[Rfam]
RNA sequence: GGAUGUGAGGGCGAUCUGGCUGCGACAUCUGUCACCCCAUUGAUCGCCAGGGUUGAUUCGGCUGAUCUGGCUGGCUAGGCGGGUGUCUCCUUCCUCCCUCACCGCUCCAUGUGCGCCCCUCCCGAAGCUGCGCGCUCCAAGAGGACGACCUUCCCGGAUAGAGGAGAGCAUCAUUCUUCUGUCAAGGGUAUACGAGUGGCUGUGCUCCCCUGCCAGAACCUCUAAACAAGCUCUCAAGGUUCCUUUGUAGGAGAACGUAGGGUGGUCAAGCUUCCAAGACUCCAGACACAUCCAAAUGAGGCACUGCACAUGGCAGUCUGCCUUUAAAA
Number, nucleotide and partner (000 for none) at each position: 001g108002g107003a106004u000005g102006u101007g100008a099009g098010g097011g096012c000013g093014a092015u000016c000017u000018g090019g089020c000021u000022g000023c000024g087025a086026c085027a084028u083029c082030u081031g080032u079033c078034a000035c074036c073037c070038c069039a068040u000041u000042g067043a066044u065045c064046g062047c061048c060049a000050g000051g000052g000053u000054u000055g000056a000057u000058u000059c000060g048061g047062c046063u000064g045065a044066u043067c042068u039069g038070g037071c000072u000073g036074g035075c000076u000077a000078g033079g032080c031081g030082g029083g028084u027085g026086u025087c024088u000089c019090c018091u000092u014093c013094c000095u000096c011097c010098c009099u008100c007101a006102c005103c000104g000105c000106u003107c002108c001109a000110u000111g000112u000113g000114c000115g000116c000117c166118c164119c163120u162121c161122c000123c000124g000125a000126a000127g135128c134129u000130g000131c000132g000133c000134g128135c127136u158137c157138c156139a000140a000141g000142a000143g154144g153145a152146c000147g000148a000149c000150c000151u000152u145153c144154c143155c000156g138157g137158a136159u000160a000161g121162a120163g119164g118165a000166g117167a000168g000169c000170a000171u000172c000173a000174u000175u000176c000177u000178u000179c000180u000181g000182u000183c000184a000185a000186g000187g000188g000189u000190a000191u000192a000193c000194g000195a000196g000197u000198g000199g271200c270201u269202g000203u000204g000205c265206u264207c000208c262209c261210c260211u259212g258213c257214c000215a000216g000217a000218a000219c000220c253221u252222c251223u250224a000225a000226a248227c247228a246229a245230g244231c000232u000233c000234u000235c000236a000237a000238g000239g000240u000241u000242c000243c000244u230245u229246u228247g227248u226249a000250g223251g222252a221253g220254a000255a000256c000257g213258u212259a211260g210261g209262g208263u000264g206265g205266u000267c000268a000269a201270g200271c199272u000273u000274c000275c000276a000277a000278g000279a000280c000281u000282c000283c000284a000285g000286a000287c000288a000289c000290a000291u000292c000293c000294a000295a000296a000297u000298g324299a323300g322301g321302c320303a317304c316305u315306g314307c313308a000309c000310a000311u000312g000313g307314c306315a305316g304317u303318c000319u000320g302321c301322c300323u299324u298325u000326a000327a000328a000329a000